[Rfam]
The record is a 47-nucleotide RNA sequence from Orchesella cincta, which matches "Histone 3' UTR stem-loop" in Rfam.
RNA sequence: CCAACGGCCCUUUUAAGGGCCACAAAAUUUUCCGAAGAGCAAAAACU
Numbered sequence: 001c002c003a004a005c006g007g008c009c010c011u012u013u014u015a016a017g018g019g020c021c022a023c024a025a026a027a028u029u030u031u032c033c034g035a036a037g038a039g040c041a042a043a044a045a046c047u
Base pairs, nucleotide, nucleotide: 006021007020008019009018010017011016

Notes: The match comes from Rfam's covariance-model search (38 bits). It is annotated as a cis-regulatory element.